[Rfam]
RNA sequence: GUGAGGUGAUGACACAGUUUAUCCAUUCUCUGAGUGCAGUGGUGCAGCCCUCCUGCAGCACCCCGAUUCCUGUUCUAGGGUCUGGGUGCUGUGCAGCCUCCAGAGACCCUCCAGUCUGCCAGUGUCCUGCUGGGGGCUGCUGUGGUGUGUGGUUGGCUGCACAGUGCAGGAGUGGAGUGGUGCCAGCAGGAUUGGAGCCCCUCUUGGAGGGGUUCUGUCCCUACCGAGAUGAGGGAUGGUGUCUGAUCAC
Numbered sequence: 001g002u003g004a005g006g007u008g009a010u011g012a013c014a015c016a017g018u019u020u021a022u023c024c025a026u027u028c029u030c031u032g033a034g035u036g037c038a039g040u041g042g043u044g045c046a047g048c049c050c051u052c053c054u055g056c057a058g059c060a061c062c063c064c065g066a067u068u069c070c071u072g073u074u075c076u077a078g079g080g081u082c083u084g085g086g087u088g089c090u091g092u093g094c095a096g097c098c099u100c101c102a103g104a105g106a107c108c109c110u111c112c113a114g115u116c117u118g119c120c121a122g123u124g125u126c127c128u129g130c131u132g133g134g135g136g137c138u139g140c141u142g143u144g145g146u147g148u149g150u151g152g153u154u155g156g157c158u159g160c161a162c163a164g165u166g167c168a169g170g171a172g173u174g175g176a177g178u179g180g181u182g183c184c185a186g187c188a189g190g191a192u193u194g195g196a197g198c199c200c201c202u203c204u205u206g207g208a209g210g211g212g213u214u215c216u217g218u219c220c221c222u223a224c225c226g227a228g229a230u231g232a233g234g235g236a237u238g239g240u241g242u243c244u245g246a247u248c249a250c
Base pairs, nucleotide, nucleotide: 010249011248012247017242018241020239023235024234026233027232028231030228031227034224035223039187040186042184043182044181045180047178048177049175050174051171052170053169054168055167056166057165059088060087061086062085063084065082068080069079070078071077093160094159095158096157097156098155106146107145112139113138114137115136116135117134119133120132121131122130123129124128189220190219191218192217194215195214196213198211199210
RNA: Small nucleolar RNA SNORD17